[Rfam]
RNA sequence: GAUAUGCGAUGAAGCGAGAGGUGGCCGCUGAAAUAUGCGGGGAAUUUUCGCGGAGUAUGUCCGAUUUUAAACCGGGCGACCA
Dot-bracket structure: .............(((.((((...((((........))))....))))))).......(((...(((......))).)))..
Numbered sequence: 001g002a003u004a005u006g007c008g009a010u011g012a013a014g015c016g017a018g019a020g021g022u023g024g025c026c027g028c029u030g031a032a033a034u035a036u037g038c039g040g041g042g043a044a045u046u047u048u049c050g051c052g053g054a055g056u057a058u059g060u061c062c063g064a065u066u067u068u069a070a071a072c073c074g075g076g077c078g079a080c081c082a
Stems, first nucleotide, its partner, number of pairs: 014051003018048004025040004059080003065076003
Source information:
Rfam assigns this 82-nucleotide RNA from Hydrogenoanaerobacterium saccharovorans to the family "S10-Clostridia ribosomal protein leader". It scores 41 bits against the family's covariance model. By type it is a cis-regulatory leader.